Rfam assigns this 103-nucleotide RNA sequence from Brassica oleracea to the family "MIR828 microRNA precursor family". Pairs were carried over by alignment from the consensus structure, which was predicted with RNAalifold. Gene Ontology terms of the family: miRNA-mediated post-transcriptional gene silencing and RISC complex. The literature on the family includes a 2010 paper in Plant Cell by Fahlgren et al., "MicroRNA gene evolution in Arabidopsis lyrata and Arabidopsis thaliana". The match comes from Rfam's covariance-model search (76 bits).
[Rfam]
RNA sequence: CCAAUGUUUCUUGCUUAAAUGAGUAUUACAUGAAAGUGAUUCUCACUCACGCAUGAGUUGGUCUCUCUCUUCAUGAGAUGCUCAUUUGAGCAAGCAACGUUUG
Numbered sequence: 001c002c003a004a005u006g007u008u009u010c011u012u013g014c015u016u017a018a019a020u021g022a023g024u025a026u027u028a029c030a031u032g033a034a035a036g037u038g039a040u041u042c043u044c045a046c047u048c049a050c051g052c053a054u055g056a057g058u059u060g061g062u063c064u065c066u067c068u069c070u071u072c073a074u075g076a077g078a079u080g081c082u083c084a085u086u087u088g089a090g091c092a093a094g095c096a097a098c099g100u101u102u103g
Base pairs, nucleotide, nucleotide: 004100005099006098007097008096010094011093012092013091014090015089016088017087018086019085020084021083022082023081024080025079026078027077029075030074